[Rfam]
This 370-nucleotide sequence from Thalassospira mesophila belongs to the Rfam family "Alphaproteobacteria transfer-messenger RNA". Its Rfam clan is "tRNA clan". It scores 230 bits against the family's covariance model. NCBI's taxonomy places the organism under Bacteria, Pseudomonadati, Alphaproteobacteria, Thalassospiraceae, Thalassospira.
RNA sequence: CCCCUUGUGAAGCAGGGGGUGUUUCCCCUAUAUAUGGGCUGUCGGCGCAAGCUGACUAUGGCGUUACACGACUUGACAGAAUAGACAUUACGGACCCGGGGGCGGUACCCGGCGGCUCCACCAACUUUUCGACUUCGCCCAACUCAGGCGGUGUUCGUGGGGCCGAAAUAGGAUCGACGUGUGUAGUAAAAGUCUUUGUUGGCGCUCGGCAUGGUACCACCGAUAUCGGGCCAAUGUUUGUAAACGCAAACGAUAAUAAUGCUCAGGUUGCUGUUGCUGCGUAAGCGGCACUAGCACCAAAGCGAAAUUCCGGUUGCCGGGAGCGGUAAUUUGGUGGGGGACGGGGCACCUAGCAACAGAACGCCCCAUU
Numbered sequence: 001c002c003c004c005u006u007g008u009g010a011a012g013c014a015g016g017g018g019g020u021g022u023u024u025c026c027c028c029u030a031u032a033u034a035u036g037g038g039c040u041g042u043c044g045g046c047g048c049a050a051g052c053u054g055a056c057u058a059u060g061g062c063g064u065u066a067c068a069c070g071a072c073u074u075g076a077c078a079g080a081a082u083a084g085a086c087a088u089u090a091c092g093g094a095c096c097c098g099g100g101g102g103c104g105g106u107a108c109c110c111g112g113c114g115g116c117u118c119c120a121c122c123a124a125c126u127u128u129u130c131g132a133c134u135u136c137g138c139c140c141a142a143c144u145c146a147g148g149c150g151g152u153g154u155u156c157g158u159g160g161g162g163c164c165g166a167a168a169u170a171g172g173a174u175c176g177a178c179g180u181g182u183g184u185a186g187u188a189a190a191a192g193u194c195u196u197u198g199u200u201g202g203c204g205c206u207c208g209g210c211a212u213g214g215u216a217c218c219a220c221c222g223a224u225a226u227c228g229g230g231c232c233a234a235u236g237u238u239u240g241u242a243a244a245c246g247c248a249a250a251c252g253a254u255a256a257u258a259a260u261g262c263u264c265a266g267g268u269u270g271c272u273g274u275u276g277c278u279g280c281g282u283a284a285g286c287g288g289c290a291c292u293a294g295c296a297c298c299a300a301a302g303c304g305a306a307a308u309u310c311c312g313g314u315u316g317c318c319g320g321g322a323g324c325g326g327u328a329a330u331u332u333g334g335u336g337g338g339g340g341a342c343g344g345g346g347c348a349c350c351u352a353g354c355a356a357c358a359g360a361a362c363g364c365c366c367c368a369u370u
Base pairs, nucleotide, nucleotide: 041056042055043054044053045052060206061205062204063203064202071199072198075194076193077192086183087182088181090180091179092178096112097111098110099109100108113165114164115163116162117161118160119159120158121157207222208221209220212233213232214231217229218228337351338350339349343367344366345365346364
Dot-bracket structure: ........................................(((((......)))))...(((((......((..(((........(((.(((...(((((.......)))))(((((((((...................................)))))))))............))))))........)))...))..)))))[[[..(((..((.]]].....)).))).......................................................................................................[[[...((((..]]]............))))...